[Rfam]
RNA: c-di-AMP riboswitch aptamer (ydaO/yuaA leader)
Organism: Corynebacterium aquatimens
RNA sequence: AAACAUAUAAAGCCGAGUCUUUUGCCUUUAUGUAGCGCCGCAAAAUGCGGGCGGGGGCGAAAGAGCCGGGGAACCACCUAGAUCAAUACUUGAUCGAAUCCUUGGGGUGUGUGCACAGGCGAAGGGCGCUUAUAGCGUAGUAGCCGUGCAGGGCAAUGUCCUGGAGCCUAACCCGUCAGCUAACCCGGUAGGUGAAUAGGAAGAUAUGG
Numbered sequence: 001a002a003a004c005a006u007a008u009a010a011a012g013c014c015g016a017g018u019c020u021u022u023u024g025c026c027u028u029u030a031u032g033u034a035g036c037g038c039c040g041c042a043a044a045a046u047g048c049g050g051g052c053g054g055g056g057g058c059g060a061a062a063g064a065g066c067c068g069g070g071g072a073a074c075c076a077c078c079u080a081g082a083u084c085a086a087u088a089c090u091u092g093a094u095c096g097a098a099u100c101c102u103u104g105g106g107g108u109g110u111g112u113g114c115a116c117a118g119g120c121g122a123a124g125g126g127c128g129c130u131u132a133u134a135g136c137g138u139a140g141u142a143g144c145c146g147u148g149c150a151g152g153g154c155a156a157u158g159u160c161c162u163g164g165a166g167c168c169u170a171a172c173c174c175g176u177c178a179g180c181u182a183a184c185c186c187g188g189u190a191g192g193u194g195a196a197u198a199g200g201a202a203g204a205u206a207u208g209g
Base pairs, nucleotide, nucleotide: 012193013192014191018064019063020062021061022060023059024058025057026056027055028054029053065189066188067187068186069185070184075104076103105174106173107172113149114148115147116146152168153167154166